[Rfam]
RNA sequence: GCAUGCUUGGUUUAGUGGUAUAAUUCACGCCUGCCACGCGUGAGACCCGAGUUCGAUUCUCGGAGCAUGCA
Numbered sequence: 001g002c003a004u005g006c007u008u009g010g011u012u013u014a015g016u017g018g019u020a021u022a023a024u025u026c027a028c029g030c031c032u033g034c035c036a037c038g039c040g041u042g043a044g045a046c047c048c049g050a051g052u053u054c055g056a057u058u059c060u061c062g063g064a065g066c067a068u069g070c071a
Base pairs, nucleotide, nucleotide: 001070002069003068004067005066006065007064010024011023012022026042027041028040029039030038047063048062049061050060051059

The family of this 71-nucleotide RNA sequence from Rhizophagus irregularis is "tRNA". It is annotated as a transfer RNA. The base pairs follow the family's consensus structure, which is taken from published work. The organism belongs to Rhizophagus irregularis, within Eukaryota.